[Rfam]
RNA: tRNA
Organism: Coleofasciculus sp. LEGE 07092
RNA sequence: CGGGAUGUAAUUCAGCGGCGAGAAGCCAUACUUUGGGAGUAUGGAGUCGCAGGUUCGAGUCCUGCCAUCCCGA
Dot-bracket structure: (((((((...(((........)))..(((((.......))))).....(((((.......)))))))))))).